[Rfam]
RNA: Small nucleolar RNA SNORD72
RNA sequence: CACUUGUUAAUAAGAUGUUUCUUAUUAAAAAGCCUGAACAUAUAAAUUCCAUAGUGAUUUCGGUGCAUUACUGAGAUAAGCU
Numbered sequence: 001c002a003c004u005u006g007u008u009a010a011u012a013a014g015a016u017g018u019u020u021c022u023u024a025u026u027a028a029a030a031a032g033c034c035u036g037a038a039c040a041u042a043u044a045a046a047u048u049c050c051a052u053a054g055u056g057a058u059u060u061c062g063g064u065g066c067a068u069u070a071c072u073g074a075g076a077u078a079a080g081c082u
Base pairs, nucleotide, nucleotide: 003080004079005078006077007076008075